[Rfam]
RNA sequence: CGAUGAGGUAGAGGUGCAACUUUCAUGAGUAGCCAAUUGUGAGAAUGAAAACGAUGACCGUUGGUGAAAGGGGAAGCUGCCGAAGUAUAAAAUGGGGUCACCUGUUUUAUGCUGGUAUAUAGGCUGAAUAAGCCAUAUACUGUCAUGCAAAAUGAGUGUGAUUUGCAUGAAGAGCUACUGAUCGU
Numbered sequence: 001c002g003a004u005g006a007g008g009u010a011g012a013g014g015u016g017c018a019a020c021u022u023u024c025a026u027g028a029g030u031a032g033c034c035a036a037u038u039g040u041g042a043g044a045a046u047g048a049a050a051a052c053g054a055u056g057a058c059c060g061u062u063g064g065u066g067a068a069a070g071g072g073g074a075a076g077c078u079g080c081c082g083a084a085g086u087a088u089a090a091a092a093u094g095g096g097g098u099c100a101c102c103u104g105u106u107u108u109a110u111g112c113u114g115g116u117a118u119a120u121a122g123g124c125u126g127a128a129u130a131a132g133c134c135a136u137a138u139a140c141u142g143u144c145a146u147g148c149a150a151a152a153u154g155a156g157u158g159u160g161a162u163u164u165g166c167a168u169g170a171a172g173a174g175c176u177a178c179u180g181a182u183c184g185u
Stems, first nucleotide, its partner, number of pairs: 007179005016080003020076005032065006039058001084113012114141007122134004143170009
A member of the RNA family "Lysine riboswitch aptamer" from Salinibacillus xinjiangensis, 185 nucleotides long. The match comes from Rfam's covariance-model search (119 bits). The source organism's lineage runs through Bacteria, Bacillati, Caryophanales, Bacillaceae and Salinibacillus.